Record summary: Potassium channel RNA editing signal: a 114-nucleotide RNA from Candidula unifasciata. The match comes from Rfam's covariance-model search (79 bits). Rfam classes the family as a cis-regulatory element. On this family, see Bhalla et al., Nat Struct Mol Biol 2004: "Control of human potassium channel inactivation by editing of a small mRNA hairpin". Taxonomically the source falls in Candidula (Eukaryota, Spiralia, Euthyneura, Geomitridae). Rfam's curators write: This family represents a group of sequences related to the human potassium channel Kv1.1 hairpin element which directs the efficient modification of an adenosine to inosine by an adenosine deaminase acting on RNA (ADAR). The ADAR modification causes an isoleucine/valine recoding event which lies in the ion-conducting pore of the potassium channel. It is thought that this editing event targets the process of fast inactivation and allows a more rapid recovery from inactivation at negative potentials. The family has 85 seed sequences and 14,095 matches in Rfam 15.1.
RNA sequence: GUUGGUUACGGAGACAUUUAUCCAAAGACUGUGCUGGGUAAAGUUGUGGGCAGUGUCUGUUGCAUCUGCGGCGUAUUGGUCAUUGCUCUUCCCAUUCCCAUCAUCGUAAACAAC
Numbered sequence: 001g002u003u004g005g006u007u008a009c010g011g012a013g014a015c016a017u018u019u020a021u022c023c024a025a026a027g028a029c030u031g032u033g034c035u036g037g038g039u040a041a042a043g044u045u046g047u048g049g050g051c052a053g054u055g056u057c058u059g060u061u062g063c064a065u066c067u068g069c070g071g072c073g074u075a076u077u078g079g080u081c082a083u084u085g086c087u088c089u090u091c092c093c094a095u096u097c098c099c100a101u102c103a104u105c106g107u108a109a110a111c112a113a114c
Stems, first nucleotide, its partner, number of pairs: 001114002004111001007108005013102002020095002037077004049063001